[Rfam]
RNA sequence: CUGUAGUGCAUUGUAGUUGCAUUGCAUGUCGUGUUCCCUGUGUGCAAUGUGUCUGCAGUGCAAUACAG
Numbered sequence: 001c002u003g004u005a006g007u008g009c010a011u012u013g014u015a016g017u018u019g020c021a022u023u024g025c026a027u028g029u030c031g032u033g034u035u036c037c038c039u040g041u042g043u044g045c046a047a048u049g050u051g052u053c054u055g056c057a058g059u060g061c062a063a064u065a066c067a068g
Base pairs, nucleotide, nucleotide: 001068002067003066004065006064007062008061009060010059011058012057013056014055015054016053019050021048022047023046024045025044026043027042
RNA: mir-33 microRNA precursor family
Organism: Leptobrachium leishanense